Shown here is a 108-nucleotide RNA from Sporosarcina sp. Marseille-Q4063, a member of the family "SAM riboswitch aptamer (S box leader)". Rfam's curators write: The SAM riboswitch is found upstream of a number of genes which code for proteins involved in methionine or cysteine biosynthesis in Gram-positive bacteria.
RNA sequence: CUCUUAUCGAGAGCGGCGGAGGGAAUAGGCCCUGUGAUGCCCGGCAACCUGCAAACAUUGUUUGUGAUGGUGCUACAUCCUACAGAUUUUUAAUCUGGAAGAUAAGAG
Numbered sequence: 001c002u003c004u005u006a007u008c009g010a011g012a013g014c015g016g017c018g019g020a021g022g023g024a025a026u027a028g029g030c031c032c033u034g035u036g037a038u039g040c041c042c043g044g045c046a047a048c049c050u051g052c053a054a055a056c057a058u059u060g061u062u063u064g065u066g067a068u069g070g071u072g073c074u075a076c077a078u079c080c081u082a083c084a085g086a087u088u089u090u091u092a093a094u095c096u097g098g099a100a101g102a103u104a105a106g107a108g
Stems, first nucleotide, its partner, number of pairs: 001108008013042001015041003021032003026082004043074004048070002050066004078100001083097006